Nucleotides: 124
Base pairs, nucleotide, nucleotide: 003122004121005120006119007118008117013043014042015041016040017039021032022031023030026097027096028095029094044089045088046087047086049085050084051082052081053080098113099112100111101110102109103108
Number, partner (000 for none) and nucleotide at each position: 001000a002000a003122u004121u005120u006119a007118u008117c009000c010000a011000g012000a013043g014042u015041g016040g017039a018000c019000g020000a021032g022031a023030g024000c025000a026097c027096u028095g029094g030023c031022u032021c033000a034000a035000u036000g037000a038000c039017u040016u041015c042014a043013c044089a045088g046087c047086a048000a049085c050084c051082u052081g053080c054000a055000a056000a057000a058000c059000g060000a061000u062000u063000g064000g065000c066000a067000g068000c069000a070000u071000u072000g073000c074000c075000u076000u077000u078000c079000a080053g081052c082051a083000a084050g085049g086047u087046g088045c089044u090000c091000c092000u093000u094029c095028c096027a097026g098113c099112a100111a101110a102109g103108c104000a105000u106000u107000u108103g109102c110101u111100u112099u113098g114000g115000g116000u117008g118007a119006u120005a121004a122003a123000g124000c
The family of this 124-nucleotide RNA sequence from Falsibacillus pallidus is "SAM riboswitch aptamer (S box leader)".
Lineage of the source: Bacteria > Bacilli > Caryophanales > Bacillaceae > Falsibacillus.
A search with the family's covariance model found it, with a score of 61 bits.